RNA sequence: UAUUACUGCUAGGGGAGCCCAAAACUGUGUGGGCUGAGAGGGAAGCAUGUAUACACUUUCCGACUCUUAUGGACCUGAUCUGGUUAAUACCAGCGGAGGGAAGUAGUCGGAUGUUCGA
Numbered sequence: 001u002a003u004u005a006c007u008g009c010u011a012g013g014g015g016a017g018c019c020c021a022a023a024a025c026u027g028u029g030u031g032g033g034c035u036g037a038g039a040g041g042g043a044a045g046c047a048u049g050u051a052u053a054c055a056c057u058u059u060c061c062g063a064c065u066c067u068u069a070u071g072g073a074c075c076u077g078a079u080c081u082g083g084u085u086a087a088u089a090c091c092a093g094c095g096g097a098g099g100g101a102a103g104u105a106g107u108c109g110g111a112u113g114u115u116c117g118a
Base pairs, nucleotide, nucleotide: 006106007105008104009103010102011067012066013065014064017034018033019032020031021030041061042060043059044058045057074099075098076097080093081092082091083090

The record is a 118-nucleotide RNA from Oceanobacillus zhaokaii, which matches "TPP riboswitch aptamer (THI element)" in Rfam. From the family's description: Vitamin B(1) in its active form thiamin pyrophosphate (TPP) is an essential coenzyme that is synthesised by coupling of pyrimidine and thiazole moieties in bacteria.